A member of the RNA family "MIR6217 microRNA precursor family" from Miscanthus lutarioriparius, 234 nucleotides long. Its family is annotated with RISC complex and miRNA-mediated post-transcriptional gene silencing in the Gene Ontology. Pairs were carried over by alignment from the consensus structure, which was predicted with RNAalifold.
RNA sequence: UGGCCGCAUAAUAAGUUAUUCUGUGGCUACUUUGAGUUACGAUAAUUACUAUACUAAUUUACGAGAUUAGAGAUUAUAGUAACUCCCCCAUAAGUGAUUUACUAUAGCGUUAUGGUAAGUAUUAUCUUGAAUUAUAGUAACUCAUGUAUUGUAAAUGUGUACUGUAAUUAUCAUAAAUUGGUACAAACAUUAUCGUAAAUCAAGAUGGCCAUAGAAUAAGUUAUUCUGUGGCCA
Numbered sequence: 001u002g003g004c005c006g007c008a009u010a011a012u013a014a015g016u017u018a019u020u021c022u023g024u025g026g027c028u029a030c031u032u033u034g035a036g037u038u039a040c041g042a043u044a045a046u047u048a049c050u051a052u053a054c055u056a057a058u059u060u061a062c063g064a065g066a067u068u069a070g071a072g073a074u075u076a077u078a079g080u081a082a083c084u085c086c087c088c089c090a091u092a093a094g095u096g097a098u099u100u101a102c103u104a105u106a107g108c109g110u111u112a113u114g115g116u117a118a119g120u121a122u123u124a125u126c127u128u129g130a131a132u133u134a135u136a137g138u139a140a141c142u143c144a145u146g147u148a149u150u151g152u153a154a155a156u157g158u159g160u161a162c163u164g165u166a167a168u169u170a171u172c173a174u175a176a177a178u179u180g181g182u183a184c185a186a187a188c189a190u191u192a193u194c195g196u197a198a199a200u201c202a203a204g205a206u207g208g209c210c211a212u213a214g215a216a217u218a219a220g221u222u223a224u225u226c227u228g229u230g231g232c233c234a
Stems, first nucleotide, its partner, number of pairs: 001234008010225005016219014031204003037198010050185001052183010065172003076168002079162003088151001094149003099144001100139008110129001115123001
Dot-bracket structure: ((((((((.(((((.((((((((((((((.(((...((((((((((...(.((((((((((...(((........((.(((......(.....(((..(((((((((..(....(.......).....)..))))))))....)..))).)........)))....)).))).)))))))))).)...))))))))))...))).)))))))))))))).))))).))))))))